[Rfam]
RNA: Group II catalytic intron D1-D4-6
Organism: Paenibacillus stellifer
RNA sequence: AAAUGGUGAUCAGGACAAAGCCUAGCCAGCAGUCCUGUACCGAGUCUUGCGUGGUGCAUGGUAACAUGUACGGCGAAGCGUAGACAGGGAGACAGUAGGCCGGAAUCAAGUGAAGAGGAUGAUUAGCCCCGAAAUCAAACGUGGUUGAAGCAGCCGAUCCUAUUUCUCUGUGGAGAAGGCAGAAGCGGCAUCAUCGAAAGGGCAAGAGGAUGACCGAGGCUUCCGGGGUUCGUACC
Numbered sequence: 001a002a003a004u005g006g007u008g009a010u011c012a013g014g015a016c017a018a019a020g021c022c023u024a025g026c027c028a029g030c031a032g033u034c035c036u037g038u039a040c041c042g043a044g045u046c047u048u049g050c051g052u053g054g055u056g057c058a059u060g061g062u063a064a065c066a067u068g069u070a071c072g073g074c075g076a077a078g079c080g081u082a083g084a085c086a087g088g089g090a091g092a093c094a095g096u097a098g099g100c101c102g103g104a105a106u107c108a109a110g111u112g113a114a115g116a117g118g119a120u121g122a123u124u125a126g127c128c129c130c131g132a133a134a135u136c137a138a139a140c141g142u143g144g145u146u147g148a149a150g151c152a153g154c155c156g157a158u159c160c161u162a163u164u165u166c167u168c169u170g171u172g173g174a175g176a177a178g179g180c181a182g183a184a185g186c187g188g189c190a191u192c193a194u195c196g197a198a199a200g201g202g203c204a205a206g207a208g209g210a211u212g213a214c215c216g217a218g219g220c221u222u223c224c225g226g227g228g229u230u231c232g233u234a235c236c
Stems, first nucleotide, its partner, number of pairs: 012036005020030002023205001025203002038090001040088002044085004048080002050075003054071007124232001126229006147223005153180003158174003186216003189212004194207002